The family of this 183-nucleotide RNA sequence from Methyloversatilis universalis is "6S / SsrS RNA". The family's consensus secondary structure is taken from published work. By type it is a non-coding RNA gene. It scores 51 bits against the family's covariance model.
[Rfam]
RNA sequence: AAUCCCCUGCGGUGUUCGCCAAGGUCAUAGAUUCCUUGAACCAAUGUCUCAUUGGCAUGAGGUCGCGAACCAUCGACGCCGCUGUUGUGCGCACCCCUCGCGGGUGUGCCUGAUGUGGCAGGAACGCGGCCGCUCUGAACCCCCGGUUCAGGAUGCCGGCCUAGCGACAUGCGCGGGGGUCCC
Numbered sequence: 001a002a003u004c005c006c007c008u009g010c011g012g013u014g015u016u017c018g019c020c021a022a023g024g025u026c027a028u029a030g031a032u033u034c035c036u037u038g039a040a041c042c043a044a045u046g047u048c049u050c051a052u053u054g055g056c057a058u059g060a061g062g063u064c065g066c067g068a069a070c071c072a073u074c075g076a077c078g079c080c081g082c083u084g085u086u087g088u089g090c091g092c093a094c095c096c097c098u099c100g101c102g103g104g105u106g107u108g109c110c111u112g113a114u115g116u117g118g119c120a121g122g123a124a125c126g127c128g129g130c131c132g133c134u135c136u137g138a139a140c141c142c143c144c145g146g147u148u149c150a151g152g153a154u155g156c157c158g159g160c161c162u163a164g165c166g167a168c169a170u171g172c173g174c175g176g177g178g179g180u181c182c183c
Stems, first nucleotide, its partner, number of pairs: 004179008012170004017166003033153003037150006061131003065127003070122001078119005089109002092106005
Dot-bracket structure: ...((((((((((((.(((.............(((.((((((..................(((.(((..(.......(((((......((.(((((.....))))).)).....)))))..)..))).))).............)))))))))..........))))))).))))))))....